[Rfam]
RNA: Small nucleolar SNORD12/SNORD106
RNA sequence: CAUGUGGUUAAUGAUGCACAAUUUUUUCCCCGUCUUAUCGACCAUGGUGAGAAAAACUGACAACUAAGCCAGUUUAUCUGAAACCACAUG
Numbered sequence: 001c002a003u004g005u006g007g008u009u010a011a012u013g014a015u016g017c018a019c020a021a022u023u024u025u026u027u028c029c030c031c032g033u034c035u036u037a038u039c040g041a042c043c044a045u046g047g048u049g050a051g052a053a054a055a056a057c058u059g060a061c062a063a064c065u066a067a068g069c070c071a072g073u074u075u076a077u078c079u080g081a082a083a084c085c086a087c088a089u090g
Stems, first nucleotide, its partner, number of pairs: 001090009